[Rfam]
RNA sequence: UGCACCUUUAAGUCUGGUCCAGAGAGGCCGGGAAGGUUUACAUUCGAUGGAUGUCAGGCAGGCUGCGCGAGGUGGCUUAAGUUGGCAUGCGUCUAACUGUGUAGCGUAUAUACGCCUUCCCAAAAGGGAAGGCGUUUUUUUAUA
Dot-bracket structure: ...((((((....((((((......)))))))))))).....((.((((.((((((..........................)))))).)))).))...........(.(.((((((((((....)))))))))).).).....